[Rfam]
Nucleotides: 110
Stems, first nucleotide, its partner, number of pairs: 003046008014037006048105011
Number, partner (000 for none) and nucleotide at each position: 001000c002000u003046a004045c005044c006043c007042c008041a009040u010039g011000a012000u013000g014037c015036u016035c017034a018033g019032g020000u021000c022000c023000g024000c025000c026000g027000c028000a029000u030000c031000u032019c033018c034017u035016g036015g037014g038000u039010c040009g041008u042007g043006g044005g045004g046003u047000c048105g049104g050103u051102c052101g053100g054099c055098u056097g057096g058095u059000a060000g061000g062000c063000a064000a065000a066000c067000u068000a069000c070000g071000c072000g073000g074000c075000u076000c077000c078000u079000c080000g081000u082000g083000c084000c085000g086000c087000c088000a089000u090000u091000g092000c093000a094000u095058g096057c097056u098055g099054g100053c101052c102051g103050a104049c105048c106000c107000c108000c109000u110000u
This 110-nucleotide sequence from Rhizobium sp. BK251 belongs to the Rfam family "EcpR1". For this family Rfam cites "Conservation and Occurrence of Trans-Encoded sRNAs in the Rhizobiales" (Reinkensmeier et al., Genes (Basel), 2011). From the family's description: Perviously named SmelC291, SmrC10, or Sra33. According to its overproduction phenotype it was renamed Elongated Cell Phenotype RNA1. Induced by stress,EcpR1 negatively regulates cell cycle master regulatory genes dnaA and gcrA at post-transcriptional level by base pairing between its strongly conserved GC-rich loop and the target mRNAs. It scores 97 bits against the family's covariance model. Gene Ontology terms of the family: regulation of translation in response to stress, negative regulation of cell cycle and mRNA binding.